[Rfam]
The record is a 515-nucleotide RNA from Sanghuangporus baumii, which matches "RNase MRP" in Rfam. Taxonomically the source falls in Sanghuangporus (Eukaryota, Opisthokonta, Agaricomycetes, Hymenochaetaceae). It is annotated as a ribozyme.
RNA sequence: ACGCCGACCAAAGGACCGCUUUCGCAGCAUACGCACAGAGGGAUUUGAUUCCUUGACUUCAGCUGCGGGGAAAGUCCCCGGAGAUCUCGCGGAGGUGUUGUGCCGUCCCCUCACUGUGAACACGCACGCUAUGGGGAAAGCUGCCGUCUUUAAGCACGACGGUCUCAUGGUGUGUGUUCGAGGGGUUUAUGGCUCGCGGGGAUCGGAUUUUGCUCAAAACUUCGUUCACAUGCAACAUGUGUAAGAUGUUUUGGUCUCCCACCCCGUGCCCUCCGCUCGCCAGCCCAAGCGCACCAAAGGACAAAACAUACGAUGUUGGAGCGAAGAUACGAGCUCCUUCCAUUCGCUUUUUUGUCUGGGCUCAAGAACCCAACUUUGGUUUCUUUUAUUUGCUGCUAUAAGAGGUUGCGCACUUCGUUGCUCAUGUAUGGCAGUUAUGUGGUCCUGGGUUGCGUUGGAGCCUCUUGAGUGAGGCUUGGGACCCGGAACAGAAUGGGGCUUACUCUUGGUCGGCG
Number, nucleotide and partner (000 for none) at each position: 001a000002c515003g514004c513005c512006g511007a510008c509009c508010a507011a506012a000013g000014g444015a443016c442017c441018g440019c439020u000021u000022u068023c067024g066025c065026a064027g063028c062029a000030u000031a000032c000033g000034c000035a000036c000037a000038g000039a054040g053041g052042g051043a050044u000045u000046u000047g000048a000049u000050u043051c042052c041053u040054u039055g000056a000057c000058u000059u000060c000061a000062g028063c027064u026065g025066c024067g023068g022069g000070g000071a000072a501073a500074g499075u000076c498077c497078c496079c495080g000081g000082a000083g000084a000085u000086c000087u000088c000089g000090c000091g000092g000093a000094g000095g000096u000097g000098u000099u000100g000101u000102g000103c000104c000105g000106u000107c000108c000109c000110c000111u000112c000113a000114c000115u000116g000117u000118g000119a000120a000121c000122a000123c000124g000125c000126a000127c000128g000129c000130u000131a000132u000133g000134g000135g000136g000137a000138a000139a000140g000141c000142u000143g000144c000145c000146g000147u000148c000149u000150u000151u000152a000153a000154g000155c000156a000157c000158g000159a000160c000161g000162g000163u000164c000165u000166c000167a000168u000169g000170g000171u000172g000173u000174g000175u000176g000177u000178u000179c000180g000181a000182g000183g000184g000185g000186u000187u000188u000189a000190u000191g000192g000193c000194u000195c000196g000197c000198g000199g000200g000201g000202a000203u000204c000205g000206g000207a000208u000209u000210u000211u000212g000213c000214u000215c000216a000217a000218a000219a000220c000221u000222u000223c000224g000225u000226u000227c000228a000229c000230a000231u000232g000233c000234a000235a000236c000237a000238u000239g000240u000241g000242u000243a000244a000245g000246a000247u000248g000249u000250u000251u000252u000253g000254g000255u000256c000257u000258c000259c000260c000261a000262c000263c000264c000265c000266g000267u000268g000269c000270c000271c000272u000273c000274c000275g000276c000277u000278c000279g000280c000281c000282a000283g000284c000285c000286c000287a000288a000289g000290c000291g000292c000293a000294c000295c000296a000297a000298a000299g000300g000301a000302c000303a000304a000305a000306a000307c000308a000309u000310a000311c000312g000313a000314u000315g000316u000317u000318g000319g000320a000321g000322c000323g000324a000325a000326g000327a000328u000329a000330c000331g000332a000333g000334c000335u000336c000337c000338u000339u000340c000341c000342a000343u000344u000345c000346g000347c000348u000349u000350u000351u000352u000353u000354g000355u000356c000357u000358g000359g000360g000361c000362u000363c000364a000365a000366g416367a415368a414369c000370c000371c408372a407373a406374c405375u404376u403377u000378g000379g000380u401381u400382u000383c000384u000385u000386u000387u000388a000389u000390u000391u000392g000393c000394u000395g000396c000397u000398a000399u000400a381401a380402g000403a376404g375405g374406u373407u372408g371409c000410g000411c000412a000413c000414u368415u367416c366417g000418u000419u000420g000421c000422u000423c000424a000425u000426g000427u000428a000429u000430g000431g000432c000433a000434g000435u000436u000437a000438u000439g019440u018441g017442g016443u015444c014445c000446u485447g484448g483449g482450u481451u480452g000453c000454g000455u000456u000457g000458g000459a000460g000461c000462c000463u000464c000465u000466u000467g000468a000469g000470u000471g000472a000473g000474g000475c000476u000477u000478g000479g000480g451481a450482c449483c448484c447485g446486g000487a000488a000489c000490a000491g000492a000493a000494u000495g079496g078497g077498g076499c074500u073501u072502a000503c000504u000505c000506u011507u010508g009509g008510u007511c006512g005513g004514c003515g002